[Rfam]
RNA sequence: AAUGCAAAUGAUGAUAAAACAUAUAGGGACAUCAGAACUCUCUUAAGAGUAAGAUGAUUUGUCAAUGGGAAUCUCUCUGAUGCAUU
Numbered sequence: 001a002a003u004g005c006a007a008a009u010g011a012u013g014a015u016a017a018a019a020c021a022u023a024u025a026g027g028g029a030c031a032u033c034a035g036a037a038c039u040c041u042c043u044u045a046a047g048a049g050u051a052a053g054a055u056g057a058u059u060u061g062u063c064a065a066u067g068g069g070a071a072u073c074u075c076u077c078u079g080a081u082g083c084a085u086u
Base pairs, nucleotide, nucleotide: 002085003084004083005082006081
Small nucleolar RNA R44/J54/Z268 family: an 86-nucleotide RNA from Olea europaea.
The family has 29 seed sequences and 1,168 matches in Rfam 15.1.
Rfam classes the family as a C/D-box small nucleolar RNA.
Rfam links the family to the GO terms RNA processing and nucleolus.
The family's consensus secondary structure was predicted with PFOLD.
The source organism's lineage runs through Eukaryota, Streptophytina, Magnoliopsida, Oleeae and Olea europaea.